[Rfam]
RNA sequence: CCAAAACUAGUCGCUUGUCAUUUUUAAUUGAUUCUUAGUGUGUUAAAAUUUUCUAAGAAACAAUUAAAAAAUGACAAGCAACUAGUUCUGG
Numbered sequence: 001c002c003a004a005a006a007c008u009a010g011u012c013g014c015u016u017g018u019c020a021u022u023u024u025u026a027a028u029u030g031a032u033u034c035u036u037a038g039u040g041u042g043u044u045a046a047a048a049u050u051u052u053c054u055a056a057g058a059a060a061c062a063a064u065u066a067a068a069a070a071a072u073g074a075c076a077a078g079c080a081a082c083u084a085g086u087u088c089u090g091g
Stems, first nucleotide, its partner, number of pairs: 002090002005087007013079011024067007032059007
RNA: MIR6288 microRNA precursor family
Organism: Prunus persica